[Rfam]
RNA sequence: AGUUCCUGGUAAUGGGCAAAGGGAUAUCAGUUGUUGGUGUUAUUCUUGUAUCAAUCAGGGACAGAGCAGAUGGCAGUCCUUUGUUCAUCCUAGCUUGACACCUGGCUUGGUGACCAAACCUGUUUUAUGCCUAGGACACAUAA
Numbered sequence: 001a002g003u004u005c006c007u008g009g010u011a012a013u014g015g016g017c018a019a020a021g022g023g024a025u026a027u028c029a030g031u032u033g034u035u036g037g038u039g040u041u042a043u044u045c046u047u048g049u050a051u052c053a054a055u056c057a058g059g060g061a062c063a064g065a066g067c068a069g070a071u072g073g074c075a076g077u078c079c080u081u082u083g084u085u086c087a088u089c090c091u092a093g094c095u096u097g098a099c100a101c102c103u104g105g106c107u108u109g110g111u112g113a114c115c116a117a118a119c120c121u122g123u124u125u126u127a128u129g130c131c132u133a134g135g136a137c138a139c140a141u142a143a
Base pairs, nucleotide, nucleotide: 002062003061004060005059006058007057008056013053014052015051019047020046021045023041024040025039026038027037028036082138083137084136085135086134097131099129103127104126105125108122109121112119
RNA: Small nucleolar RNA SNORA48